[Rfam]
RNA sequence: UGUUCUGUGGUGUAACGGUAGCACAGCAGAUUCUGAUUCUGUUUGUCUGGGUUCGAAUCCUAGCAGAACAA
Numbered sequence: 001u002g003u004u005c006u007g008u009g010g011u012g013u014a015a016c017g018g019u020a021g022c023a024c025a026g027c028a029g030a031u032u033c034u035g036a037u038u039c040u041g042u043u044u045g046u047c048u049g050g051g052u053u054c055g056a057a058u059c060c061u062a063g064c065a066g067a068a069c070a071a
Stems, first nucleotide, its partner, number of pairs: 001070007010024004026042005047063005
RNA: tRNA
Organism: Microbacter margulisiae